[Rfam]
RNA sequence: CCGAAGCACCCGUACUCGGAUCGUCCGGCACGUUCCUGCCGGGAUGGGAAGAAUGA
Dot-bracket structure: ........(((((...........((((((......)))))).)))))........
Source information: A member of the RNA family "msiK RNA" from Nocardia ignorata, 56 nucleotides long. The match comes from Rfam's covariance-model search (44 bits). Taxonomically the source falls in Nocardia (Bacteria, Bacillati, Actinomycetota, Nocardiaceae). By type it is a cis-regulatory element.